[Rfam]
RNA sequence: UAGACUGUACUUGCACAGGAUCACUGCUACAGUGGUUCCUCUUGCAUACAUGUCAUAAAACAGAGCUUCACAGCAUCUCUGAUGAUGUCGAUCUCUGCACUGAUGAGGAAUUUGCUGGAGCUUGCUCCCAGCUUGAUGAAAAUCAUCAGUGCAGUCUUCUGAAGAGAU
Numbered sequence: 001u002a003g004a005c006u007g008u009a010c011u012u013g014c015a016c017a018g019g020a021u022c023a024c025u026g027c028u029a030c031a032g033u034g035g036u037u038c039c040u041c042u043u044g045c046a047u048a049c050a051u052g053u054c055a056u057a058a059a060a061c062a063g064a065g066c067u068u069c070a071c072a073g074c075a076u077c078u079c080u081g082a083u084g085a086u087g088u089c090g091a092u093c094u095c096u097g098c099a100c101u102g103a104u105g106a107g108g109a110a111u112u113u114g115c116u117g118g119a120g121c122u123u124g125c126u127c128c129c130a131g132c133u134u135g136a137u138g139a140a141a142a143u144c145a146u147c148a149g150u151g152c153a154g155u156c157u158u159c160u161g162a163a164g165a166g167a168u
Stems, first nucleotide, its partner, number of pairs: 002040002006035001008034004017028002020025001046068001050067001053064002076167005095154004100149006110143004120132003